[Rfam]
RNA sequence: UGUCUGUUUGCGGGAGAGAGCCGUUAAGGCCGCCGAAGGGGAAAACGCCCGAAAUCUCUCAGGUACAAGGAACCGCAGGCGGGUA
Number, nucleotide and partner (000 for none) at each position: 001u000002g000003u000004c000005u000006g080007u079008u078009u077010g076011c075012g074013g073014g000015a000016g000017a000018g000019a000020g030021c029022c028023g000024u000025u000026a000027a000028g022029g021030c020031c000032g064033c063034c062035g060036a059037a000038g000039g058040g057041g056042a000043a000044a000045a000046c051047g000048c000049c000050c000051g046052a000053a000054a000055u000056c041057u040058c039059u036060c035061a000062g034063g033064u032065a000066c000067a000068a000069g000070g000071a000072a000073c013074c012075g011076c010077a009078g008079g007080c006081g000082g000083g000084u000085a000

Shown here is an 85-nucleotide sequence from Brucella abortus, a member of the family "Glycine riboswitch aptamer". A search with the family's covariance model found it, with a score of 56 bits.